[Rfam]
RNA: Bacillaceae-1 RNA
RNA sequence: CAAGGCGGAUGUUCGAUUAAGUUCGGCACUUCCUCGAAAAAUGCCAAGCAUUUCUUCUUCGUGCGAUGUGUCGCUGCCGAAGUGUUCCUUGUCCUGUGCCAACAUCGAACGACCUCACAUCCUGUGAG
Numbered sequence: 001c002a003a004g005g006c007g008g009a010u011g012u013u014c015g016a017u018u019a020a021g022u023u024c025g026g027c028a029c030u031u032c033c034u035c036g037a038a039a040a041a042u043g044c045c046a047a048g049c050a051u052u053u054c055u056u057c058u059u060c061g062u063g064c065g066a067u068g069u070g071u072c073g074c075u076g077c078c079g080a081a082g083u084g085u086u087c088c089u090u091g092u093c094c095u096g097u098g099c100c101a102a103c104a105u106c107g108a109a110c111g112a113c114c115u116c117a118c119a120u121c122c123u124g125u126g127a128g
Base pairs, nucleotide, nucleotide: 011110012109013108014107015106016105017104025100026099027098028097029096114128115127116126117125118124